[Rfam]
TPP riboswitch aptamer (THI element): a 118-nucleotide RNA from a Rhodospirillales bacterium. Gene Ontology term of the family: thiamine pyrophosphate binding. The family's consensus secondary structure is taken from published work. For this family Rfam cites "Structural basis of thiamine pyrophosphate analogues binding to the eukaryotic riboswitch" (Thore et al., J Am Chem Soc, 2008). Lineage of the source: Bacteria > Pseudomonadati > Pseudomonadota > Alphaproteobacteria > Rhodospirillales.
RNA sequence: GCGACGUCCGAGGGGUGUCCGGCCUCCGCAAGGAGACCGGGCUGAGACAGCCAGUGGGGCUGAACCCUUUGAACCUGAUCCGGGUCAUGCCGGCGAAGGAACGGGAGUUAGCCAUUGG
Numbered sequence: 001g002c003g004a005c006g007u008c009c010g011a012g013g014g015g016u017g018u019c020c021g022g023c024c025u026c027c028g029c030a031a032g033g034a035g036a037c038c039g040g041g042c043u044g045a046g047a048c049a050g051c052c053a054g055u056g057g058g059g060c061u062g063a064a065c066c067c068u069u070u071g072a073a074c075c076u077g078a079u080c081c082g083g084g085u086c087a088u089g090c091c092g093g094c095g096a097a098g099g100a101a102c103g104g105g106a107g108u109u110a111g112c113c114a115u116u117g118g
Stems, first nucleotide, its partner, number of pairs: 007105004011068004016062001017042005049061004074099003080093004